[Rfam]
Rfam assigns this 117-nucleotide RNA sequence from Sagittula salina to the family "ALIL pseudoknot".
RNA sequence: GGCGCGUCUUGCGGUGGCAGAGCUCGACCGCCGGUCGAAGUGAUGGUCGGGCUCAUACACGAUCAUCGUGAGGCGCACGGGGCCGAGCCGAUCUGCAAACUUCUGCCGAUCGCCCCA
Numbered sequence: 001g002g003c004g005c006g007u008c009u010u011g012c013g014g015u016g017g018c019a020g021a022g023c024u025c026g027a028c029c030g031c032c033g034g035u036c037g038a039a040g041u042g043a044u045g046g047u048c049g050g051g052c053u054c055a056u057a058c059a060c061g062a063u064c065a066u067c068g069u070g071a072g073g074c075g076c077a078c079g080g081g082g083c084c085g086a087g088c089c090g091a092u093c094u095g096c097a098a099a100c101u102u103c104u105g106c107c108g109a110u111c112g113c114c115c116c117a
Base pairs, nucleotide, nucleotide: 016032017031018030020028079116080115081114082113089112090111092109093108095106096105097104
Rfam classes the family as a cis-regulatory element. Lineage of the source: Bacteria > Pseudomonadati > Alphaproteobacteria > Roseobacteraceae > Sagittula.